RNA sequence: AUCCCGCUCGUAGGCGGCCCCGUUGGGGGCGUCUCAAGGGCUCUCGCACACGGUGUGAAGGUUCUUGAAGACGGGAUAAACUAUGCAACAGGGAAUCUACCCGGUUGCCCUUU
Number, nucleotide and partner (000 for none) at each position: 001a077002u076003c075004c074005c073006g000007c000008u071009c070010g000011u000012a034013g033014g032015c031016g030017g000018c028019c026020c025021c000022g000023u000024u000025g020026g019027g000028g018029g000030c016031g015032u014033c013034u012035c067036a066037a065038g064039g063040g062041c061042u060043c000044u058045c057046g056047c055048a054049c053050a000051c000052g000053g049054u048055g047056u046057g045058a044059a000060g042061g041062u040063u039064c038065u037066u036067g035068a000069a000070g009071a008072c000073g005074g004075g003076a002077u001078a000079a000080a000081c000082u000083a000084u000085g108086c107087a106088a105089c104090a000091g102092g101093g100094a000095a000096u000097c000098u000099a000100c093101c092102c091103g000104g089105u088106u087107g086108c085109c000110c000111u000112u000113u000
This 113-nucleotide sequence from Orthohepacivirus hominis belongs to the Rfam family "J750 non-coding RNA (containing SLSL761 and SL783)". The base pairs follow the family's consensus structure, which was predicted with RNAfold. The family's RNA type in Rfam is cis-regulatory element. The literature on the family includes a 2016 paper in Mol Cell by Pirakitikulr et al., "The Coding Region of the HCV Genome Contains a Network of Regulatory RNA Structures".